The record is an 86-nucleotide RNA sequence from Digitaria exilis, which matches "Small nucleolar RNA Z102/R77" in Rfam.
[Rfam]
RNA sequence: GGAUGAUACGAUGACGAAAUUGUUUCCCUAUUGGUUUGAUUGGCCACCAUGUUGGCUCAAACUGUAUUAGCUCUAUCUGAUCUUCU
Numbered sequence: 001g002g003a004u005g006a007u008a009c010g011a012u013g014a015c016g017a018a019a020u021u022g023u024u025u026c027c028c029u030a031u032u033g034g035u036u037u038g039a040u041u042g043g044c045c046a047c048c049a050u051g052u053u054g055g056c057u058c059a060a061a062c063u064g065u066a067u068u069a070g071c072u073c074u075a076u077c078u079g080a081u082c083u084u085c086u
Base pairs, nucleotide, nucleotide: 002085003084005082038058043056044055045054

NCBI's taxonomy places the organism under Eukaryota, Streptophytina, Embryophyta, Mesangiospermae, Digitaria. By type it is a C/D-box small nucleolar RNA. Pairs were carried over by alignment from the consensus structure, which was predicted with PFOLD. A search with the family's covariance model found it, with a score of 86 bits.